[Rfam]
RNA sequence: ACGCUCCUUCGUUAGGCGCGGCGCGCUCACGAACACAGGUCAUUGCUCCGAACCGUCGAGAGACGCUAAGGGGUAGACGGCAAUCCUCGGCUUAAGGGGUUUGCUAACAUGACUGCGAAACUUCGCUACGUUGUGGGCGGGCUUAAGCUCAACCAGGGGGGAGGCG
Numbered sequence: 001a002c003g004c005u006c007c008u009u010c011g012u013u014a015g016g017c018g019c020g021g022c023g024c025g026c027u028c029a030c031g032a033a034c035a036c037a038g039g040u041c042a043u044u045g046c047u048c049c050g051a052a053c054c055g056u057c058g059a060g061a062g063a064c065g066c067u068a069a070g071g072g073g074u075a076g077a078c079g080g081c082a083a084u085c086c087u088c089g090g091c092u093u094a095a096g097g098g099g100u101u102u103g104c105u106a107a108c109a110u111g112a113c114u115g116c117g118a119a120a121c122u123u124c125g126c127u128a129c130g131u132u133g134u135g136g137g138c139g140g141g142c143u144u145a146a147g148c149u150c151a152a153c154c155a156g157g158g159g160g161g162a163g164g165c166g
Stems, first nucleotide, its partner, number of pairs: 004163004009159002011153002013095001015149003020143003025138008039113005045074005054065004080104004086098003115126003
RNA: M-box riboswitch aptamer (ykoK leader)
Organism: Candidatus Viridilinea mediisalina